The record is a 35-nucleotide sequence from Exaiptasia diaphana, which matches "Iron response element I" in Rfam. NCBI's taxonomy places the organism under Eukaryota, Opisthokonta, Hexacorallia, Actiniaria, Exaiptasia. The family's RNA type in Rfam is cis-regulatory element. On this family, see Hentze et al., Science 1987: "Identification of the iron-responsive element for the translational regulation of human ferritin mRNA".
RNA sequence: GAGUUUCUGCUUCAACAGUGAUUGAACAGAAAUUU
Numbered sequence: 001g002a003g004u005u006u007c008u009g010c011u012u013c014a015a016c017a018g019u020g021a022u023u024g025a026a027c028a029g030a031a032a033u034u035u
Base pairs, nucleotide, nucleotide: 001035002034003033004032005031006030007029009027011026012025013024014023015022016020